The record is an 87-nucleotide sequence from Paraperlucidibaca baekdonensis, which matches "SAH (S-adenosyl-L-homocysteine) riboswitch aptamer" in Rfam.
[Rfam]
RNA sequence: GCGAUCGAGGGGCGCUGCAGCAGGUCAUUUUGGCAACAAAACCCUGUCAGGCUCGAUUGCAUUUCUAGUCAACGGCGCCCGUUCGCU
Numbered sequence: 001g002c003g004a005u006c007g008a009g010g011g012g013c014g015c016u017g018c019a020g021c022a023g024g025u026c027a028u029u030u031u032g033g034c035a036a037c038a039a040a041a042c043c044c045u046g047u048c049a050g051g052c053u054c055g056a057u058u059g060c061a062u063u064u065c066u067a068g069u070c071a072a073c074g075g076c077g078c079c080c081g082u083u084c085g086c087u
Stems, first nucleotide, its partner, number of pairs: 002059007021046004
It scores 58 bits against the family's covariance model. Rfam links the family to the GO terms S-adenosylhomocysteine metabolic process and regulation of gene expression. Taxonomically the source falls in Paraperlucidibaca (Bacteria, Pseudomonadati, Moraxellales, Moraxellaceae).